RNA sequence: CCUCUUUCAAUUCCGCGGCCGGGACCUUAUAUUCAGGGCGUCGGCUUGCCGACUAUAGCGAUAAACGGAUUACGGAAUAAGCCAUUCGGACCCGGGGGCGGUACCCGGCGCCUCCACCAUUUUCCUCUGGCAGCCAGCUACUGCCGGGGUUUCAGGGGGCGAAACAGGAUCGACGAGGGUGUAAAGGUCUUCUUUUCGCUCGGCAUGGUACCACCGUAUCGGACCAAUCCUAUAGAUGCCAAAAACAACAUGGCUUCUGUGGCUGCCAACGACAACGCUCCGGUUGCUUUCGCAAUCGCUGCCUAAUCGUUGAAAGCCGAAAGUCCUUGUUCAUAGCUGAAUAAAGGCGGGGUCCGGAGGCACCUGGCAACAGAAGCCUCCACU
Numbered sequence: 001c002c003u004c005u006u007u008c009a010a011u012u013c014c015g016c017g018g019c020c021g022g023g024a025c026c027u028u029a030u031a032u033u034c035a036g037g038g039c040g041u042c043g044g045c046u047u048g049c050c051g052a053c054u055a056u057a058g059c060g061a062u063a064a065a066c067g068g069a070u071u072a073c074g075g076a077a078u079a080a081g082c083c084a085u086u087c088g089g090a091c092c093c094g095g096g097g098g099c100g101g102u103a104c105c106c107g108g109c110g111c112c113u114c115c116a117c118c119a120u121u122u123u124c125c126u127c128u129g130g131c132a133g134c135c136a137g138c139u140a141c142u143g144c145c146g147g148g149g150u151u152u153c154a155g156g157g158g159g160c161g162a163a164a165c166a167g168g169a170u171c172g173a174c175g176a177g178g179g180u181g182u183a184a185a186g187g188u189c190u191u192c193u194u195u196u197c198g199c200u201c202g203g204c205a206u207g208g209u210a211c212c213a214c215c216g217u218a219u220c221g222g223a224c225c226a227a228u229c230c231u232a233u234a235g236a237u238g239c240c241a242a243a244a245a246c247a248a249c250a251u252g253g254c255u256u257c258u259g260u261g262g263c264u265g266c267c268a269a270c271g272a273c274a275a276c277g278c279u280c281c282g283g284u285u286g287c288u289u290u291c292g293c294a295a296u297c298g299c300u301g302c303c304u305a306a307u308c309g310u311u312g313a314a315a316g317c318c319g320a321a322a323g324u325c326c327u328u329g330u331u332c333a334u335a336g337c338u339g340a341a342u343a344a345a346g347g348c349g350g351g352g353u354c355c356g357g358a359g360g361c362a363c364c365u366g367g368c369a370a371c372a373g374a375a376g377c378c379u380c381c382a383c384u
Stems, first nucleotide, its partner, number of pairs: 040053005057200005067193003072188002082179002086176003092108005109161007201216003206226003211222002350365004356381006

The record is a 384-nucleotide sequence from a Parvibaculaceae bacterium, which matches "Alphaproteobacteria transfer-messenger RNA" in Rfam. Pairs were carried over by alignment from the consensus structure, which is taken from published work. A search with the family's covariance model found it, with a score of 268 bits. On this family, see Williams and Bartel, RNA 1996: "Phylogenetic analysis of tmRNA secondary structure". From the family's description: Bacterial tmRNA, also known as 10Sa RNA or SsrA, is named for its dual tRNA and mRNA-like properties. Gene Ontology term of the family: RNA catabolic process.